[Rfam]
RNA sequence: CAAACCCCACGUGACUGGCGAUAGAAUCUUCGGAUAGGUGGGGCAACCCAUCAGGAAGCGCGGAGCGUCGUUUUCCCGUUUGCCUGGGCAGCUAGC
Number, nucleotide and partner (000 for none) at each position: 001c000002a000003a000004a000005c065006c000007c063008c062009a000010c060011g059012u058013g000014a000015c055016u054017g084018g083019c082020g081021a080022u000023a000024g000025a000026a000027u000028c000029u000030u000031c000032g000033g000034a000035u000036a000037g000038g051039u050040g049041g048042g000043g000044c000045a000046a000047c000048c041049c040050a039051u038052c000053a000054g016055g015056a000057a000058g012059c011060g010061c000062g008063g007064a000065g005066c000067g000068u000069c000070g000071u000072u000073u091074u090075c000076c088077c087078g000079u000080u021081u020082g019083c018084c017085u000086g000087g077088g076089c000090a074091g073092c000093u000094a000095g000096c000
ZMP/ZTP riboswitch aptamer (pfl RNA motif): a 96-nucleotide RNA sequence from Candidatus Paraburkholderia kirkii. Lineage of the source: Bacteria > Pseudomonadota > Betaproteobacteria > Burkholderiaceae > Candidatus Paraburkholderia kirkii. On this family, see Jones and Ferre-D'Amare, Nat Struct Mol Biol 2015: "Recognition of the bacterial alarmone ZMP through long-distance association of two RNA subdomains". Pairs were carried over by alignment from the consensus structure, which is taken from published work.